The record is a 109-nucleotide RNA sequence from Cohnella nanjingensis, which matches "Glycine riboswitch aptamer" in Rfam.
[Rfam]
RNA sequence: CUCUGGAGAGCAUCCCGCGAGCGGGAUCACCCAAGGGGAUACUUGCAACGGACCGGUCGCCGGGCGCGAUCCUCCGCUGCGAGGCAACUCUCAGGUACCAAGGACAGAG
Numbered sequence: 001c002u003c004u005g006g007a008g009a010g011c012a013u014c015c016c017g018c019g020a021g022c023g024g025g026a027u028c029a030c031c032c033a034a035g036g037g038g039a040u041a042c043u044u045g046c047a048a049c050g051g052a053c054c055g056g057u058c059g060c061c062g063g064g065c066g067c068g069a070u071c072c073u074c075c076g077c078u079g080c081g082a083g084g085c086a087a088c089u090c091u092c093a094g095g096u097a098c099c100a101a102g103g104a105c106a107g108a109g
Stems, first nucleotide, its partner, number of pairs: 001109005012027004029096003033091001036090003042083006
On this family, see Mandal et al., Science 2004: "A glycine-dependent riboswitch that uses cooperative binding to control gene expression".